Rhodo-rpoB RNA: a 94-nucleotide RNA sequence.

[Rfam]
RNA sequence: GUGUCGAGAGGCCGUCAUUGGGACGAGGGCCAAGAAUGGACCGUAAUCUGUUAUCUCGGAGGGAUGUGGUGCUGGAACCCCGACAGCAGGCACA
Dot-bracket structure: ..(((....((((.((........)).)))).......))).......................((((.(((((.........)))))..))))
Numbered sequence: 001g002u003g004u005c006g007a008g009a010g011g012c013c014g015u016c017a018u019u020g021g022g023a024c025g026a027g028g029g030c031c032a033a034g035a036a037u038g039g040a041c042c043g044u045a046a047u048c049u050g051u052u053a054u055c056u057c058g059g060a061g062g063g064a065u066g067u068g069g070u071g072c073u074g075g076a077a078c079c080c081c082g083a084c085a086g087c088a089g090g091c092a093c094a
Stems, first nucleotide, its partner, number of pairs: 003041003010031004015026002065094004070088005